[Rfam]
RNA sequence: GGCUGGUUUCAGUGCAGUGGUGUUUACAACUAAUUGAUCACAACCAGUAUAGAUUUCUUUAUUCUUUUUCCAGUCUCACUGGUUCACCUAGCUAGCCUUUC
Numbered sequence: 001g002g003c004u005g006g007u008u009u010c011a012g013u014g015c016a017g018u019g020g021u022g023u024u025u026a027c028a029a030c031u032a033a034u035u036g037a038u039c040a041c042a043a044c045c046a047g048u049a050u051a052g053a054u055u056u057c058u059u060u061a062u063u064c065u066u067u068u069u070c071c072a073g074u075c076u077c078a079c080u081g082g083u084u085c086a087c088c089u090a091g092c093u094a095g096c097c098u099u100u101c
Stems, first nucleotide, its partner, number of pairs: 001097008014085001016080005022075001028063002032059002
Dot-bracket structure: ((((((((.....(.(((((.(.....((..((........................))..))...........))))))....)....))))))))....
RNA: Y RNA